[Rfam]
RNA sequence: AAUAAAGGAUUAAAGGCUAAGAACGCGACAUCAUGUCGCGUUCUUAGCCUUUGUAACCUACGUCCUGUAGA
Numbered sequence: 001a002a003u004a005a006a007g008g009a010u011u012a013a014a015g016g017c018u019a020a021g022a023a024c025g026c027g028a029c030a031u032c033a034u035g036u037c038g039c040g041u042u043c044u045u046a047g048c049c050u051u052u053g054u055a056a057c058c059u060a061c062g063u064c065c066u067g068u069a070g071a
Base pairs, nucleotide, nucleotide: 011053012052013051014050015049016048017047025039026038027037028036029035058070059069060068061067